[Rfam]
RNA sequence: AGCAUUAAGGUGGGUGGAAUAAUAUAACAAUAGCCGUGUUGUUAUAGUAUUCCACCUACCCUGAUGUG
Numbered sequence: 001a002g003c004a005u006u007a008a009g010g011u012g013g014g015u016g017g018a019a020u021a022a023u024a025u026a027a028c029a030a031u032a033g034c035c036g037u038g039u040u041g042u043u044a045u046a047g048u049a050u051u052c053c054a055c056c057u058a059c060c061c062u063g064a065u066g067u068g
Stems, first nucleotide, its partner, number of pairs: 003066005009060009019050003023046010

mir-2985 microRNA precursor family: a 68-nucleotide sequence from Alaudala cheleensis. The family has 8 seed sequences and 2,000 matches in Rfam 15.1. The base pairs follow the family's consensus structure, which was predicted with RNAalifold. From the family's description: RNAs can be post-transcriptional modified, in micro RNAs (miRNA) editing of pre-mRNA is a common process. Gene Ontology terms of the family: miRNA-mediated post-transcriptional gene silencing and RISC complex. A search with the family's covariance model found it, with a score of 83 bits.